[Rfam]
Nucleotides: 088
Base pairs, nucleotide, nucleotide: 004052006050007049008048010046011045012044015041016040017076018075019074020073024037025036026035027034065083066082067081068080069079
Number, partner (000 for none) and nucleotide at each position: 001000g002000g003000a004052g005000g006050c007049g008048g009000c010046c011045g012044c013000g014000a015041c016040u017076g018075g019074c020073g021000a022000g023000g024037g025036u026035g027034g028000g029000a030000a031000c032000g033000a034027c035026c036025a037024c038000c039000g040016g041015g042000g043000a044012g045011c046010g047000u048008c049007c050006g051000a052004u053000c054000g055000a056000c057000c058000u059000g060000u061000u062000g063000g064000u065083g066082c067081g068080u069079c070000g071000u072000c073020c074019g075018c076017c077000u078000g079069g080068g081067c082066g083065c084000c085000u086000g087000g088000g